[Rfam]
RNA sequence: GGAUGUGAGGGUGAUCUGGCUGCAACAUCUGUCGUCCCACUGAUUGCCAGGGUUGAUUUGGCUGAUCUGGCUGGCUGGGCAGGUGUCCCCUUCCUCCCUCACUGAUCCAAGUUCGUCCCUCCCAAAGCUGUGAGCUCGGUCAAAGAGGAUGACUUUCCCUGCUAGAGAGGGCUGUUCUUUCAUCAAGGGUAUACAAGUAGUUGCAUUCCUCCACCACCACUCCAAACGAGCUCUCAAGGUCCAUUUGUAGGAGAACAUAGAGUAGUCCAGCUUCCAAGACUACAGACACAUCCAAGUGAAAUACUGCAUGUGGCAGUCUGCUUUUCUU
Numbered sequence: 001g002g003a004u005g006u007g008a009g010g011g012u013g014a015u016c017u018g019g020c021u022g023c024a025a026c027a028u029c030u031g032u033c034g035u036c037c038c039a040c041u042g043a044u045u046g047c048c049a050g051g052g053u054u055g056a057u058u059u060g061g062c063u064g065a066u067c068u069g070g071c072u073g074g075c076u077g078g079g080c081a082g083g084u085g086u087c088c089c090c091u092u093c094c095u096c097c098c099u100c101a102c103u104g105a106u107c108c109a110a111g112u113u114c115g116u117c118c119c120u121c122c123c124a125a126a127g128c129u130g131u132g133a134g135c136u137c138g139g140u141c142a143a144a145g146a147g148g149a150u151g152a153c154u155u156u157c158c159c160u161g162c163u164a165g166a167g168a169g170g171g172c173u174g175u176u177c178u179u180u181c182a183u184c185a186a187g188g189g190u191a192u193a194c195a196a197g198u199a200g201u202u203g204c205a206u207u208c209c210u211c212c213a214c215c216a217c218c219a220c221u222c223c224a225a226a227c228g229a230g231c232u233c234u235c236a237a238g239g240u241c242c243a244u245u246u247g248u249a250g251g252a253g254a255a256c257a258u259a260g261a262g263u264a265g266u267c268c269a270g271c272u273u274c275c276a277a278g279a280c281u282a283c284a285g286a287c288a289c290a291u292c293c294a295a296g297u298g299a300a301a302u303a304c305u306g307c308a309u310g311u312g313g314c315a316g317u318c319u320g321c322u323u324u325u326c327u328u
Stems, first nucleotide, its partner, number of pairs: 001108003005102007013093002018090002025086009035074002037070003042067004046062003116170002119167003122139002125136001127135002141161002147158003200271003206265002209262003213258001220253004226248005295328002298324003302320001303317005
This 328-nucleotide RNA sequence from Phyllostomus discolor belongs to the Rfam family "7SK RNA". The match comes from Rfam's covariance-model search (288 bits). Rfam 15.1 lists 49,373 matches to the family in 668 species. By type it is a non-coding RNA gene. Rfam's curators write: 7SK was discovered as an abundant small nuclear RNA in the mid-70s but a possible function has only recently been suggested. Two independent studies have found that 7SK RNA binds the CDK9/cyclin T complex (known as elongation factor P-TEFb). P-TEFb activates transcription by phosphorylating the C-terminal domain of RNA polymerase II. This process is negatively regulated by the 7SK RNP. The secondary structure of 7SK RNA shown here was proposed by Wasserman and Steitz on the basis of chemical modification and enzymatic cleavage experiments. This family contains a number of annotated pseudogenes and 7SK derived repeats. The threshold is artificially high to minimise the pseudogene count. The source organism's lineage runs through Eukaryota, Theria, Laurasiatheria, Chiroptera and Phyllostomus.